[Rfam]
Nucleotides: 117
Stems, first nucleotide, its partner, number of pairs: 016032004079116003089112002092109002095106003
Number, partner (000 for none) and nucleotide at each position: 001000g002000g003000c004000g005000u006000u007000u008000u009000u010000u011000g012000c013000g014000a015000u016032g017031g018030c019029g020000g021000a022000g023000c024000u025000a026000g027000a028000a029019c030018g031017c032016c033000g034000g035000u036000c037000g038000a039000a040000g041000u042000g043000a044000u045000g046000g047000u048000g049000g050000a051000u052000u053000u054000c055000a056000u057000c058000g059000a060000a061000g062000c063000g064000c065000a066000u067000c068000g069000u070000g071000g072000c073000g074000c075000g076000c077000a078000c079116g080115g081114g082000a083000u084000c085000g086000a087000g088000c089112c090111g091000a092109u093108c094000u095106g096105c097104g098000c099000u100000g101000u102000g103000c104097u105096g106095c107000c108093g109092a110000u111090c112089g113000c114081c115080c116079c117000u
The record is a 117-nucleotide RNA from Roseivivax sp. THAF197b, which matches "ALIL pseudoknot" in Rfam.
For this family Rfam cites "Apical loop-internal loop RNA pseudoknots: a new type of stimulator of -1 translational frameshifting in bacteria" (Mazauric et al., J Biol Chem, 2008).
Taxonomically the source falls in Roseivivax (Bacteria, Pseudomonadati, Alphaproteobacteria, Rhodobacterales).
Gene Ontology term of the family: positive regulation of translational frameshifting.